c-di-AMP riboswitch aptamer (ydaO/yuaA leader): a 188-nucleotide RNA from Conexibacter arvalis.
The source organism's lineage runs through Bacteria, Bacillati, Actinomycetota, Conexibacteraceae and Conexibacter.
The base pairs follow the family's consensus structure.
Gene Ontology terms of the family: cyclic-di-AMP binding and regulation of gene expression.
It scores 64 bits against the family's covariance model.

RNA sequence: GACGCAUAGGUGCCGAAUCACAGUCGUCCUGGACGACUUGGAGCGGGGGACCCAACCGAGCCGGAUCCGUCCGGCUCACGGGGCGAAUCGCCGCCAGCCACUCCGCCAUCGGAGGGCUCCGGAGGCGUAGCGCACUCUUUCAGCGCGAGCCCGUCAGCUCACCUCGUAGGCCGCGAAAGAGAAGCCAU
Numbered sequence: 001g002a003c004g005c006a007u008a009g010g011u012g013c014c015g016a017a018u019c020a021c022a023g024u025c026g027u028c029c030u031g032g033a034c035g036a037c038u039u040g041g042a043g044c045g046g047g048g049g050a051c052c053c054a055a056c057c058g059a060g061c062c063g064g065a066u067c068c069g070u071c072c073g074g075c076u077c078a079c080g081g082g083g084c085g086a087a088u089c090g091c092c093g094c095c096a097g098c099c100a101c102u103c104c105g106c107c108a109u110c111g112g113a114g115g116g117c118u119c120c121g122g123a124g125g126c127g128u129a130g131c132g133c134a135c136u137c138u139u140u141c142a143g144c145g146c147g148a149g150c151c152c153g154u155c156a157g158c159u160c161a162c163c164u165c166g167u168a169g170g171c172c173g174c175g176a177a178a179g180a181g182a183a184g185c186c187a188u
Stems, first nucleotide, its partner, number of pairs: 012171003018042002043167006053080001081152003089127004130146004